Shown here is a 98-nucleotide sequence from Tepidicella xavieri, a member of the family "SAH (S-adenosyl-L-homocysteine) riboswitch aptamer". Pairs were carried over by alignment from the consensus structure, which is taken from published work.
RNA sequence: CCCCAAGGAGCGUUGCAGCGCUUCGACCCAGGCCGCGUGUGGCUUGGGGCCGCGAAGCGUCAGGCUUGGGUUUUGGCUCACAACCACGCUCACCUGUC
Number, nucleotide and partner (000 for none) at each position: 001c000002c070003c069004c068005a067006a066007g000008g000009a000010g000011c000012g000013u000014u000015g000016c000017a000018g000019c059020g058021c057022u056023u055024c054025g000026a000027c000028c000029c000030a000031g000032g000033c000034c000035g000036c000037g000038u000039g000040u000041g000042g000043c000044u000045u000046g000047g000048g000049g000050c000051c000052g000053c000054g024055a023056a022057g021058c020059g019060u000061c000062a000063g000064g000065c000066u006067u005068g004069g003070g002071u000072u000073u000074u000075g000076g000077c000078u000079c000080a000081c000082a000083a000084c000085c000086a000087c000088g000089c000090u000091c000092a000093c000094c000095u000096g000097u000098c000